Rfam assigns this 179-nucleotide RNA sequence from Albidovulum inexpectatum to the family "Ruegeria cis52 sRNA".
A search with the family's covariance model found it, with a score of 119 bits.
It is annotated as a small RNA.
For this family Rfam cites "Experimental Identification of Small Non-Coding RNAs in the Model Marine Bacterium Ruegeria pomeroyi DSS-3" (Rivers et al., Front Microbiol, 2016).
Gene Ontology term of the family: regulation of gene expression.
The source organism's lineage runs through Bacteria, Alphaproteobacteria, Rhodobacterales, Paracoccaceae and Albidovulum.

RNA sequence: UGCGCAGCGCAUGUCGCAGCACGAUCGUGCGAAAGCUCAGCCCCUUGAGCCGGGCCGUGCGGAUGUAUUGCGACGUCAUCACCUCGGCCAUCGAGGCCCGGGUCAUCCGCGCGAUAUAGCCCGUGCCGUACAGGGCGAUCGUCAGGACGGGCAGGGCGAAAUUCUCGAAGGUCACGUCG
Dot-bracket structure: .....(.(((.(((((..(((......((.(......(...(...(((.((((((..(((((.....)))))..)......(((((.....)))))))))).)))...)...)......).))))))).)).).))).)......((..(((.(((......))).....)))...)).